[Rfam]
RNA sequence: GCACUCCCCGAUUUCCCUGCCCUUCUCCCUCCAUGUUGGGCUGGCACAUGGGCAGUGCUACAGCGAUGCAAGGUAUAUCCAGAUGGGCUUCCUCGCUCGAUUGGGGCUUGUCUCUACAGCCUUGAUACAGAA
Numbered sequence: 001g002c003a004c005u006c007c008c009c010g011a012u013u014u015c016c017c018u019g020c021c022c023u024u025c026u027c028c029c030u031c032c033a034u035g036u037u038g039g040g041c042u043g044g045c046a047c048a049u050g051g052g053c054a055g056u057g058c059u060a061c062a063g064c065g066a067u068g069c070a071a072g073g074u075a076u077a078u079c080c081a082g083a084u085g086g087g088c089u090u091c092c093u094c095g096c097u098c099g100a101u102u103g104g105g106g107c108u109u110g111u112c113u114c115u116a117c118a119g120c121c122u123u124g125a126u127a128c129a130g131a132a
Stems, first nucleotide, its partner, number of pairs: 001058005013048001014046001016044002019041001021039002069124005081113008093104003